[Rfam]
RNA: Makes More Granules Regulator RNA (mmgR)
RNA sequence: GGAACCUGCCUUUCAGGCAUCCUCUCCCAAAACUUUGAGCCCGGGCGGCAACGCCCGGGCUUUUUUAUUGCCUCAA
Numbered sequence: 001g002g003a004a005c006c007u008g009c010c011u012u013u014c015a016g017g018c019a020u021c022c023u024c025u026c027c028c029a030a031a032a033c034u035u036u037g038a039g040c041c042c043g044g045g046c047g048g049c050a051a052c053g054c055c056c057g058g059g060c061u062u063u064u065u066u067a068u069u070g071c072c073u074c075a076a
Stems, first nucleotide, its partner, number of pairs: 008018004038061009